[Rfam]
Shown here is a 184-nucleotide RNA sequence from Brenneria goodwinii, a member of the family "GcvB RNA". The literature on the family includes a 2015 paper in EMBO J by Miyakoshi et al., "Cross talk between ABC transporter mRNAs via a target mRNA-derived sponge of the GcvB small RNA".
RNA sequence: ACUUCCCAGGCCGGAACGAAAAGUGCGGAGGAGCGAUCUGAAGGGCUUUUGGCUUGUGGUUGUGAUGUUGUGUUUGCUAUUUGUUUUUCUGCCUUUGCAGAUAAGGUAGCCAGACUACCUUUUUAUUACAUUUACCUUGUCUGUCCUGAUUUAAUAUAGCACCGCCAACGCGGUGCUUUUUUUA
Numbered sequence: 001a002c003u004u005c006c007c008a009g010g011c012c013g014g015a016a017c018g019a020a021a022a023g024u025g026c027g028g029a030g031g032a033g034c035g036a037u038c039u040g041a042a043g044g045g046c047u048u049u050u051g052g053c054u055u056g057u058g059g060u061u062g063u064g065a066u067g068u069u070g071u072g073u074u075u076g077c078u079a080u081u082u083g084u085u086u087u088u089c090u091g092c093c094u095u096u097g098c099a100g101a102u103a104a105g106g107u108a109g110c111c112a113g114a115c116u117a118c119c120u121u122u123u124u125a126u127u128a129c130a131u132u133u134a135c136c137u138u139g140u141c142u143g144u145c146c147u148g149a150u151u152u153a154a155u156a157u158a159g160c161a162c163c164g165c166c167a168a169c170g171c172g173g174u175g176c177u178u179u180u181u182u183u184a
Stems, first nucleotide, its partner, number of pairs: 009054004015050002021048004026043001030039003085104002088101005105119005130155003158177008